[Rfam]
RNA sequence: AGUGGUUGCGGUCACUAUAAACAGGACUUUAAGCCGCAAGCGUUUCUAUCCUGUACAAAGUAUGGGAUAGAGGGUAGCC
Dot-bracket structure: [[[[.((((((.]]]]........[.[[....[)))))).].(((((((((((((.....)))))))))))))..]].]